[Rfam]
RNA sequence: GCUGUAAUUUUCCAAGCAUUUUCAAUGUAUUUCCAUAAGAAACUUCCUUGGUAAAACCUUCAUUGGUCUCAACUCUGUCUGGCUGGGCAUUUGCCAAAGCCCAUGAGUGCCCAUCCAGACAUACUUGAGACAAUAAUGGGCUUAAGCUGAAGGUUUUACCGAAGAAGUUUUCGUAUGAAAAUCUCAUGUAAGAUUCAUUUCUAUAAUUUUGGCACCUUGGCAUAGCUUACAAAAAAACUGCACUGAUCUAAAUGGAAAAUGUUUCUCUUCCUGAUAAUCGCACGCCUUUCUUUUUGGCCUGCCAUUAUCAGCCGAAGAUCGAACAUUUAAACAAUAAUACUCGUCAGAAUAUUUUUAAUUCUUGCUAUGCCCCGGUUUUCAUGUUACAAUUGAACAUUCUUCACGUGAGAAUUGUUCAAAUAUUGUACCACAAUACAUGAAUACCACAUGCCUAAGUUAUCGAAACGAAUACUAUAUAUUACUGGAGGAUUUUCGUUUUUUUCUUAUAAUUGAAAAUGGGUUGAAAAUUUACCAGUU
Numbered sequence: 001g002c003u004g005u006a007a008u009u010u011u012c013c014a015a016g017c018a019u020u021u022u023c024a025a026u027g028u029a030u031u032u033c034c035a036u037a038a039g040a041a042a043c044u045u046c047c048u049u050g051g052u053a054a055a056a057c058c059u060u061c062a063u064u065g066g067u068c069u070c071a072a073c074u075c076u077g078u079c080u081g082g083c084u085g086g087g088c089a090u091u092u093g094c095c096a097a098a099g100c101c102c103a104u105g106a107g108u109g110c111c112c113a114u115c116c117a118g119a120c121a122u123a124c125u126u127g128a129g130a131c132a133a134u135a136a137u138g139g140g141c142u143u144a145a146g147c148u149g150a151a152g153g154u155u156u157u158a159c160c161g162a163a164g165a166a167g168u169u170u171u172c173g174u175a176u177g178a179a180a181a182u183c184u185c186a187u188g189u190a191a192g193a194u195u196c197a198u199u200u201c202u203a204u205a206a207u208u209u210u211g212g213c214a215c216c217u218u219g220g221c222a223u224a225g226c227u228u229a230c231a232a233a234a235a236a237a238c239u240g241c242a243c244u245g246a247u248c249u250a251a252a253u254g255g256a257a258a259a260u261g262u263u264u265c266u267c268u269u270c271c272u273g274a275u276a277a278u279c280g281c282a283c284g285c286c287u288u289u290c291u292u293u294u295u296g297g298c299c300u301g302c303c304a305u306u307a308u309c310a311g312c313c314g315a316a317g318a319u320c321g322a323a324c325a326u327u328u329a330a331a332c333a334a335u336a337a338u339a340c341u342c343g344u345c346a347g348a349a350u351a352u353u354u355u356u357a358a359u360u361c362u363u364g365c366u367a368u369g370c371c372c373c374g375g376u377u378u379u380c381a382u383g384u385u386a387c388a389a390u391u392g393a394a395c396a397u398u399c400u401u402c403a404c405g406u407g408a409g410a411a412u413u414g415u416u417c418a419a420a421u422a423u424u425g426u427a428c429c430a431c432a433a434u435a436c437a438u439g440a441a442u443a444c445c446a447c448a449u450g451c452c453u454a455a456g457u458u459a460u461c462g463a464a465a466c467g468a469a470u471a472c473u474a475u476a477u478a479u480u481a482c483u484g485g486a487g488g489a490u491u492u493u494c495g496u497u498u499u500u501u502u503c504u505u506a507u508a509a510u511u512g513a514a515a516a517u518g519g520g521u522u523g524a525a526a527a528u529u530u531a532c533c534a535g536u537u
Stems, first nucleotide, its partner, number of pairs: 001537001003535001005531003009527003013523003017518001021514006028506001042168005048162001050160002053157008065131001067129001069128004074123001076121002079118004086112002088109002091106003186479005193470004198465004206457004212451003216374001219371001221369006236360002239357002248343001250341001257328008266318004271311002274308005375447001377446001380439003391422002394415002396412005
RNA: Bicoid 3'-UTR regulatory element
Organism: Drosophila virilis